[Rfam]
RNA sequence: GUAGUGAAAACCGCUCCGGGGUGCCCGUACGAAAGGUCCGGUGCGGUGAGGUGGGUAAUCUCCGUGCCCUUGCCGGGGCCCGGAGUGCCAUCUGGCGUUCGGCGUCCGGGAGUUAGUGGCUCCUAGGGCGCCGUCG
Numbered sequence: 001g002u003a004g005u006g007a008a009a010a011c012c013g014c015u016c017c018g019g020g021g022u023g024c025c026c027g028u029a030c031g032a033a034a035g036g037u038c039c040g041g042u043g044c045g046g047u048g049a050g051g052u053g054g055g056u057a058a059u060c061u062c063c064g065u066g067c068c069c070u071u072g073c074c075g076g077g078g079c080c081c082g083g084a085g086u087g088c089c090a091u092c093u094g095g096c097g098u099u100c101g102g103c104g105u106c107c108g109g110g111a112g113u114u115a116g117u118g119g120c121u122c123c124u125a126g127g128g129c130g131c132c133g134u135c136g
Base pairs, nucleotide, nucleotide: 001096002095011046012045013044014043016041017040018039019038024035051091052090053089054088056087057086063082064081066079067078068077069076070075100133101132102131103130104129105128106127107126108124109123110122111121112120113119
RNA: Streptomyces RNA 6925